A member of the RNA family "Bacterial RNase P class A" from Tanticharoenia sakaeratensis, 426 nucleotides long.
Taxonomically the source falls in Tanticharoenia sakaeratensis (Bacteria, Pseudomonadati, Pseudomonadota, Acetobacteraceae).
Ribonuclease P (RNase P) is a ubiquitous endoribonuclease, found in archaea, bacteria and eukarya as well as chloroplasts and mitochondria. Its best characterised activity is the generation of mature 5'-ends of tRNAs by cleaving the 5'-leader elements of precursor-tRNAs. Cellular RNase Ps are ribonucleoproteins. RNA from bacterial RNase Ps retains its catalytic activity in the absence of the protein subunit, i.e. it is a ribozyme. Isolated eukaryotic and archaeal RNase P RNA has not been shown to retain its catalytic function, but is still essential for the catalytic activity of the holoenzyme. Although the archaeal and eukaryotic holoenzyme s have a much greater protein content than the bacterial ones, the RNA cores from all the three lineages are homologous -- helices corresponding to P1, P2, P3, P4, and P10/11 are common to all cellular RNase P RNAs. Yet, there is considerable sequence variation, particularly among the eukaryotic RNAs. Identified in Yersinia as Ysr151/RnpB.
It scores 284 bits against the family's covariance model.

RNA sequence: CCAGACGGUUGGACGAUCGCGGCGGGUGCGGUUUUGCUGCAUCGGUCGAGGAAAGUCCGGGCUCCACGGGAGAACGGUGCCGGCUAACGGCCGGCGGGGGCGACCCUAGGGACAGUGCCACAGAAAACAAACCACCCGCCGGACUGGUCGCGCGAGCGACUUGGUUGCGGGCAAGGUCGAAACGGGGCGGUAAGAGCGCACCGCGCGCCUGGCGACAGGGGCGGCAUGGUAAACCCCACCGGGAGCAAGACCGAAUAGGAGCGGCAGGUCGGUAUCCCAUCGGGAUGCACGACCGGAGGUUCUCCCGCCUCGUCGCUCGGGUUGGUCGCGCGAGGCGCAUCGCAAGAUGCGUCCCAGAGGAAUGAUCGUCACACCGCCGCUUCGUGCGCUGGUGGACAGAACCCGGCUUACAGACCGUCUGGCACC
Numbered sequence: 001c002c003a004g005a006c007g008g009u010u011g012g013a014c015g016a017u018c019g020c021g022g023c024g025g026g027u028g029c030g031g032u033u034u035u036g037c038u039g040c041a042u043c044g045g046u047c048g049a050g051g052a053a054a055g056u057c058c059g060g061g062c063u064c065c066a067c068g069g070g071a072g073a074a075c076g077g078u079g080c081c082g083g084c085u086a087a088c089g090g091c092c093g094g095c096g097g098g099g100g101c102g103a104c105c106c107u108a109g110g111g112a113c114a115g116u117g118c119c120a121c122a123g124a125a126a127a128c129a130a131a132c133c134a135c136c137c138g139c140c141g142g143a144c145u146g147g148u149c150g151c152g153c154g155a156g157c158g159a160c161u162u163g164g165u166u167g168c169g170g171g172c173a174a175g176g177u178c179g180a181a182a183c184g185g186g187g188c189g190g191u192a193a194g195a196g197c198g199c200a201c202c203g204c205g206c207g208c209c210u211g212g213c214g215a216c217a218g219g220g221g222c223g224g225c226a227u228g229g230u231a232a233a234c235c236c237c238a239c240c241g242g243g244a245g246c247a248a249g250a251c252c253g254a255a256u257a258g259g260a261g262c263g264g265c266a267g268g269u270c271g272g273u274a275u276c277c278c279a280u281c282g283g284g285a286u287g288c289a290c291g292a293c294c295g296g297a298g299g300u301u302c303u304c305c306c307g308c309c310u311c312g313u314c315g316c317u318c319g320g321g322u323u324g325g326u327c328g329c330g331c332g333a334g335g336c337g338c339a340u341c342g343c344a345a346g347a348u349g350c351g352u353c354c355c356a357g358a359g360g361a362a363u364g365a366u367c368g369u370c371a372c373a374c375c376g377c378c379g380c381u382u383c384g385u386g387c388g389c390u391g392g393u394g395g396a397c398a399g400a401a402c403c404c405g406g407c408u409u410a411c412a413g414a415c416c417g418u419c420u421g422g423c424a425c426c
Stems, first nucleotide, its partner, number of pairs: 001422010011411001012370007020048004025043006053409003057406005062245004070305001072303001075241005080094005095109001096107004110236002115234002117230003132176002135171005141165001184202002187199003203225001204223003208219004249327004259318006296311005334353008